[Rfam]
RNA sequence: CGAGCCGGCCGGGCGGUCGCGUCGUCGCAGCUCGCUGCGGCGCCGAGGAAAGUCCGGACUCCACAGGGCAGGGUGGUGGCCAACAGCCACCCGGGGCGACCCGCGGGACAGUGCCACAGAGAACAGACCGCCGGCACGCGCGCUCUCGGGCGUGCGGCGCCGGUAAGGGUGAAACGGUGGUGUAAGAGACCACCAGCGUCCGGGGUGACCCGGACGGCUCGGCAAACCCCACCCGGAGCAAGGCCAGACAGGGAGCGAUCGGCGGCUGCUCGCAGCUGCCGGGGAGGGCUGCCCGCCCGAGCUCCCGGGUAGGCCGCUCGAGGCUGUCGGCAACGGCAGCCCUAGAUGGAUGGCCGCCGGGACCGCUCUCGCGGUCCUACAGGAUCCGGCUUACAGGCCGGCUCGUCCC
Numbered sequence: 001c002g003a004g005c006c007g008g009c010c011g012g013g014c015g016g017u018c019g020c021g022u023c024g025u026c027g028c029a030g031c032u033c034g035c036u037g038c039g040g041c042g043c044c045g046a047g048g049a050a051a052g053u054c055c056g057g058a059c060u061c062c063a064c065a066g067g068g069c070a071g072g073g074u075g076g077u078g079g080c081c082a083a084c085a086g087c088c089a090c091c092c093g094g095g096g097c098g099a100c101c102c103g104c105g106g107g108a109c110a111g112u113g114c115c116a117c118a119g120a121g122a123a124c125a126g127a128c129c130g131c132c133g134g135c136a137c138g139c140g141c142g143c144u145c146u147c148g149g150g151c152g153u154g155c156g157g158c159g160c161c162g163g164u165a166a167g168g169g170u171g172a173a174a175c176g177g178u179g180g181u182g183u184a185a186g187a188g189a190c191c192a193c194c195a196g197c198g199u200c201c202g203g204g205g206u207g208a209c210c211c212g213g214a215c216g217g218c219u220c221g222g223c224a225a226a227c228c229c230c231a232c233c234c235g236g237a238g239c240a241a242g243g244c245c246a247g248a249c250a251g252g253g254a255g256c257g258a259u260c261g262g263c264g265g266c267u268g269c270u271c272g273c274a275g276c277u278g279c280c281g282g283g284g285a286g287g288g289c290u291g292c293c294c295g296c297c298c299g300a301g302c303u304c305c306c307g308g309g310u311a312g313g314c315c316g317c318u319c320g321a322g323g324c325u326g327u328c329g330g331c332a333a334c335g336g337c338a339g340c341c342c343u344a345g346a347u348g349g350a351u352g353g354c355c356g357c358c359g360g361g362a363c364c365g366c367u368c369u370c371g372c373g374g375u376c377c378u379a380c381a382g383g384a385u386c387c388g389g390c391u392u393a394c395a396g397g398c399c400g401g402c403u404c405g406u407c408c409c
Stems, first nucleotide, its partner, number of pairs: 001405010011394001012358007020045002023042006050392003054389005059238004066294004071234005076090005091105001092103004106229002111227002113223003128168002130164006137157001176194006196218001197216008242315004251306006286298004322341008

A member of the RNA family "Bacterial RNase P class A" from Motilibacter peucedani, 409 nucleotides long. Pairs were carried over by alignment from the consensus structure, which is taken from published work. NCBI's taxonomy places the organism under Bacteria, Bacillati, Actinomycetes, Motilibacterales, Motilibacter. It is annotated as a ribozyme.